[Rfam]
RNA sequence: AUUUCAUAAAAGCAAAAUUAUUAAAAGAUAAUUACGCAAAGCAAGGGGUCUAAGGCUAAAUGCUAUGAUAGCCCGGCUGCCACC
Numbered sequence: 001a002u003u004u005c006a007u008a009a010a011a012g013c014a015a016a017a018u019u020a021u022u023a024a025a026a027g028a029u030a031a032u033u034a035c036g037c038a039a040a041g042c043a044a045g046g047g048g049u050c051u052a053a054g055g056c057u058a059a060a061u062g063c064u065a066u067g068a069u070a071g072c073c074c075g076g077c078u079g080c081c082a083c084c
Base pairs, nucleotide, nucleotide: 012037013036017032018031019030020029021028022027040078041077042076045074046073047072048069049068050067055063056062